[Rfam]
RNA sequence: AACUUAUCCAGAGAGACUGAGGGACAGGCCCUAUGACGUCCAGCAACCAUCAUUUUUAUGAAAGGUGCUAAUUCCUGCAGAAUGAUAUCAUUCUGAAAGAUAAGGU
Numbered sequence: 001a002a003c004u005u006a007u008c009c010a011g012a013g014a015g016a017c018u019g020a021g022g023g024a025c026a027g028g029c030c031c032u033a034u035g036a037c038g039u040c041c042a043g044c045a046a047c048c049a050u051c052a053u054u055u056u057u058a059u060g061a062a063a064g065g066u067g068c069u070a071a072u073u074c075c076u077g078c079a080g081a082a083u084g085a086u087a088u089c090a091u092u093c094u095g096a097a098a099g100a101u102a103a104g105g106u
Stems, first nucleotide, its partner, number of pairs: 001106001003104006013041001015040003021031003025077004042069004047065002050060001073098001078095006

This 106-nucleotide RNA from Fictibacillus arsenicus belongs to the Rfam family "SAM riboswitch aptamer (S box leader)". Taxonomically the source falls in Fictibacillus (Bacteria, Bacillota, Bacilli, Fictibacillaceae). A reference for the family is Grundy and Henkin (1998), "The S box regulon: a new global transcription termination control system for methionine and cysteine biosynthesis genes in gram-positive bacteria", Mol Microbiol. Gene Ontology term of the family: regulation of gene expression. About the family: The SAM riboswitch is found upstream of a number of genes which code for proteins involved in methionine or cysteine biosynthesis in Gram-positive bacteria.